[Rfam]
RNA sequence: AAGGCGUUCGCUGAAAAGCCUUCAAUAGAGUAAGCA
Numbered sequence: 001a002a003g004g005c006g007u008u009c010g011c012u013g014a015a016a017a018g019c020c021u022u023c024a025a026u027a028g029a030g031u032a033a034g035c036a
Stems, first nucleotide, its partner, number of pairs: 002021004010035003

This 36-nucleotide sequence from Spirosoma validum belongs to the Rfam family "DUF805b RNA". The family's consensus secondary structure is taken from published work. By type it is a cis-regulatory element.